[Rfam]
RNA sequence: CCGACGUGGACAUCCAGGAGUGUCUCCUCCUGGCUCUGUCCUGGUGGCGUAUGGGAGCAUAGCUCUGAGCUGUGACGUACAGUCCCGUUCCACGCCGUCGGAGACAAAGCUCCGUCCCCGGCUGUCGCUGGUGAGGACGAGCGUCCUGCAUAUUCCUACAUCUUCCCAGAGUCCUUUGGGGCCGUUACUGGGGAGCUAAACCAUGCAGUGCACAAAG
Numbered sequence: 001c002c003g004a005c006g007u008g009g010a011c012a013u014c015c016a017g018g019a020g021u022g023u024c025u026c027c028u029c030c031u032g033g034c035u036c037u038g039u040c041c042u043g044g045u046g047g048c049g050u051a052u053g054g055g056a057g058c059a060u061a062g063c064u065c066u067g068a069g070c071u072g073u074g075a076c077g078u079a080c081a082g083u084c085c086c087g088u089u090c091c092a093c094g095c096c097g098u099c100g101g102a103g104a105c106a107a108a109g110c111u112c113c114g115u116c117c118c119c120g121g122c123u124g125u126c127g128c129u130g131g132u133g134a135g136g137a138c139g140a141g142c143g144u145c146c147u148g149c150a151u152a153u154u155c156c157u158a159c160a161u162c163u164u165c166c167c168a169g170a171g172u173c174c175u176u177u178g179g180g181g182c183c184g185u186u187a188c189u190g191g192g193g194a195g196c197u198a199a200a201c202c203a204u205g206c207a208g209u210g211c212a213c214a215a216a217g
Base pairs, nucleotide, nucleotide: 001101002100003099004098005097006096008041009040010039011038012037014033015032016031018029019028020027044093045092046091047090053086054085055084056083057080059078060077062073063072146208147207148206149205150204151203162195163194164193165192166191167190171182172181173180174179